[Rfam]
RNA sequence: UGGGUAUGGUCUAUCCUUCGACCAUAACCUUUGUGGUUUGGUCUAGAUGGAGCCCCAUCUCUAGUUGUUGAAUUCAGCUGU
Numbered sequence: 001u002g003g004g005u006a007u008g009g010u011c012u013a014u015c016c017u018u019c020g021a022c023c024a025u026a027a028c029c030u031u032u033g034u035g036g037u038u039u040g041g042u043c044u045a046g047a048u049g050g051a052g053c054c055c056c057a058u059c060u061c062u063a064g065u066u067g068u069u070g071a072a073u074u075c076a077g078c079u080g081u
Stems, first nucleotide, its partner, number of pairs: 001063004006058004010051006020043005026038004
Rfam assigns this 81-nucleotide RNA sequence from Sorghum bicolor to the family "Small nucleolar RNA Z112". A reference for the family is Liang et al. (2002), "A novel gene organization: intronic snoRNA gene clusters from Oryza sativa", Nucleic Acids Res. Rfam classes the family as a C/D-box small nucleolar RNA. The family has 6 seed sequences and 427 matches in Rfam 15.1. NCBI's taxonomy places the organism under Eukaryota, Streptophytina, Poaceae, Sorghinae, Sorghum. The family's consensus secondary structure was predicted with PFOLD.